[Rfam]
RNA: serC leader
Organism: Ferrovibrio terrae
RNA sequence: CCGUGGGACACGCCCCCCCAACGGGGCGCUUACUAUCUGGAAGGAUAGACGCA
Numbered sequence: 001c002c003g004u005g006g007g008a009c010a011c012g013c014c015c016c017c018c019c020a021a022c023g024g025g026g027c028g029c030u031u032a033c034u035a036u037c038u039g040g041a042a043g044g045a046u047a048g049a050c051g052c053a
Base pairs, nucleotide, nucleotide: 011028012027013026014025015024016023033048034047035046036045037044038043